Overview:
Shown here is a 131-nucleotide sequence from Fukomys damarensis, a member of the family "Small nucleolar RNA SNORA70". It scores 63 bits against the family's covariance model. Rfam links the family to the GO terms nucleolus and RNA processing. For this family Rfam cites "Pseudouridine in RNA: what, where, how, and why" (Charette and Gray, IUBMB Life, 2000). The base pairs follow the family's consensus structure, which was predicted with PFOLD. By type it is an H/ACA-box small nucleolar RNA. Rfam describes the family as follows. snoRNA U70 seems to be exclusive to mammals and is a member of the H/ACA class of snoRNA which contain H (ANANNA) and ACA box motifs.
[Rfam]
RNA sequence: CUGCAGCCAGUUAAACCAACCAGCUCCUUCCCCGGUGGGCAGUAGAUGCAGUGACUGCAAGUAGCAGCCCCCUCAGUAGUAUAUGCAGCUGUCGCUUGGAAGGGUUAAACCAAGGGACCAUGGGGACACAC
Numbered sequence: 001c002u003g004c005a006g007c008c009a010g011u012u013a014a015a016c017c018a019a020c021c022a023g024c025u026c027c028u029u030c031c032c033c034g035g036u037g038g039g040c041a042g043u044a045g046a047u048g049c050a051g052u053g054a055c056u057g058c059a060a061g062u063a064g065c066a067g068c069c070c071c072c073u074c075a076g077u078a079g080u081a082u083a084u085g086c087a088g089c090u091g092u093c094g095c096u097u098g099g100a101a102g103g104g105u106u107a108a109a110c111c112a113a114g115g116g117a118c119c120a121u122g123g124g125g126a127c128a129c130a131c
Base pairs, nucleotide, nucleotide: 002050003049004048005047020045022043025039026038027037076118077117087106088105089104090102